[Rfam]
RNA sequence: CUGCUGUGAUGAACCGCUGUUAGUGCCAUCGUGUCUGGGCCACUGAUUCUCCAUGAUGGAACUGAGGAUCUGAGCAG
Numbered sequence: 001c002u003g004c005u006g007u008g009a010u011g012a013a014c015c016g017c018u019g020u021u022a023g024u025g026c027c028a029u030c031g032u033g034u035c036u037g038g039g040c041c042a043c044u045g046a047u048u049c050u051c052c053a054u055g056a057u058g059g060a061a062c063u064g065a066g067g068a069u070c071u072g073a074g075c076a077g
Base pairs, nucleotide, nucleotide: 001077002076003075004074
Shown here is a 77-nucleotide RNA sequence from Sphenodon punctatus, a member of the family "Small nucleolar RNA SNORD66". For this family Rfam cites "RNomics: an experimental approach that identifies 201 candidates for novel, small, non-messenger RNAs in mouse" (Huttenhofer et al., EMBO J, 2001). By type it is a C/D-box small nucleolar RNA. Taxonomically the source falls in Sphenodon (Eukaryota, Opisthokonta, Vertebrata, Tetrapoda). About the family: snoRNA HBII-142 is part of the C/D family of snoRNAs. It is the human orthologue of the mouse MBII-142 snoRNA and is predicted to guide 2'O-ribose methylation of small 18S rRNA at residue C1272.